Selenocysteine transfer RNA: an 84-nucleotide RNA sequence from Schizotequatrovirus KVP40. The family has 109 seed sequences and 4,211 matches in Rfam 15.1. A search with the family's covariance model found it, with a score of 49 bits.
[Rfam]
RNA sequence: UGGAGCGUAAGCCGCAAGGUGCGGCAGCGGACUGUAAAUCCGUGUCCCGUAAUGGGAAGAGAGGUUCGAUUCCUCUACGCUCCA
Numbered sequence: 001u002g003g004a005g006c007g008u009a010a011g012c013c014g015c016a017a018g019g020u021g022c023g024g025c026a027g028c029g030g031a032c033u034g035u036a037a038a039u040c041c042g043u044g045u046c047c048c049g050u051a052a053u054g055g056g057a058a059g060a061g062a063g064g065u066u067c068g069a070u071u072c073c074u075c076u077a078c079g080c081u082c083c084a
Stems, first nucleotide, its partner, number of pairs: 001084009011025006027043005048056001061075004